[Rfam]
This 102-nucleotide RNA sequence from Virgibacillus sp. SK37 belongs to the Rfam family "Purine riboswitch aptamer". The base pairs follow the family's consensus structure, which is taken from published work. Taxonomically the source falls in Virgibacillus (Bacteria, Bacillati, Bacillota, Caryophanales).
RNA sequence: GACAAACUUAAUGAUGUUUUUCAUAUAAUAGCAGGGAUAUGGCCUGCGAGUUUCUACCAGUUUACCGUAAAUGAACUGACUAUGAAAAGCUUGUAUGGGUGA
Numbered sequence: 001g002a003c004a005a006a007c008u009u010a011a012u013g014a015u016g017u018u019u020u021u022c023a024u025a026u027a028a029u030a031g032c033a034g035g036g037a038u039a040u041g042g043c044c045u046g047c048g049a050g051u052u053u054c055u056a057c058c059a060g061u062u063u064a065c066c067g068u069a070a071a072u073g074a075a076c077u078g079a080c081u082a083u084g085a086a087a088a089g090c091u092u093g094u095a096u097g098g099g100u101g102a
Base pairs, nucleotide, nucleotide: 018088019087020086021085022084023083024082025081029049031047032046033045034044035043058078059077060076061075062074063073064072
Annotation: A search with the family's covariance model found it, with a score of 87 bits. Its Rfam clan is "Purine riboswitches".